[Rfam]
RNA: BsrG
Organism: Paenibacillus sp. FSL H7-0357
RNA sequence: GCAAUAGAAUAGGCUUAAAGGGUCGGUCGGCUACCUCUCUAAGAAGGGAGGGAUGCCUUGUGACAGUGUUUGAAGCAAUGAUGAUUAUGCUAACCUUUGGUUCGCUUAUCGUAGCGCUGCUGUCCAAUAAACGCAAAUAGACCGCCCCCUCGCAAAGGCAUGCGGUCUAUCUGUCGUAUCCUGUUUGUUGAGGCCUACCGCCCUUAGAAGCGGCUAUUGCAUGGGGAGUCGUGUUGGUAGCACGGCUC
Numbered sequence: 001g002c003a004a005u006a007g008a009a010u011a012g013g014c015u016u017a018a019a020g021g022g023u024c025g026g027u028c029g030g031c032u033a034c035c036u037c038u039c040u041a042a043g044a045a046g047g048g049a050g051g052g053a054u055g056c057c058u059u060g061u062g063a064c065a066g067u068g069u070u071u072g073a074a075g076c077a078a079u080g081a082u083g084a085u086u087a088u089g090c091u092a093a094c095c096u097u098u099g100g101u102u103c104g105c106u107u108a109u110c111g112u113a114g115c116g117c118u119g120c121u122g123u124c125c126a127a128u129a130a131a132c133g134c135a136a137a138u139a140g141a142c143c144g145c146c147c148c149c150u151c152g153c154a155a156a157g158g159c160a161u162g163c164g165g166u167c168u169a170u171c172u173g174u175c176g177u178a179u180c181c182u183g184u185u186u187g188u189u190g191a192g193g194c195c196u197a198c199c200g201c202c203c204u205u206a207g208a209a210g211c212g213g214c215u216a217u218u219g220c221a222u223g224g225g226g227a228g229u230c231g232u233g234u235u236g237g238u239a240g241c242a243c244g245g246c247u248c
Base pairs, nucleotide, nucleotide: 001220002219003218004217005216007214010197011196012195013194014193015192020147021146022145025142027140032053034051035050036049037048038047039046062124063123064122065121066120067119068118075090076089077088100115101114102113158174159173160172198213199212200211201210226248227247228246229245230244231243232242233241234240235239